The family of this 118-nucleotide RNA sequence from Candidatus Tokpelaia sp. JSC085 is "Alphaproteobacterial ar14". Rfam classes the family as a small RNA. Pairs were carried over by alignment from the consensus structure. The literature on the family includes a 2012 paper in RNA Biol by del Val et al., "A survey of sRNA families in alpha-proteobacteria". From the family's description: Smr14C2 was renamed NfeR1 (Nodule Formation Efficiency RNA) highly expressed in salt stress and during the symbiotic interaction on legume roots.
[Rfam]
RNA sequence: GAAGCUUGCUGGGUUCAACUUCCUCCCAGAGCGAGCCUAGCGGUGGAUACGGCAUUCCCUCCUCCCAAGCCGUAUUCGGAAUUGAAGGCCGUGCAUUUCCUCCCGCGCGGCCUUUUCU
Numbered sequence: 001g002a003a004g005c006u007u008g009c010u011g012g013g014u015u016c017a018a019c020u021u022c023c024u025c026c027c028a029g030a031g032c033g034a035g036c037c038u039a040g041c042g043g044u045g046g047a048u049a050c051g052g053c054a055u056u057c058c059c060u061c062c063u064c065c066c067a068a069g070c071c072g073u074a075u076u077c078g079g080a081a082u083u084g085a086a087g088g089c090c091g092u093g094c095a096u097u098u099c100c101u102c103c104c105g106c107g108c109g110g111c112c113u114u115u116u117c118u
Stems, first nucleotide, its partner, number of pairs: 007042003011038006045077009086113009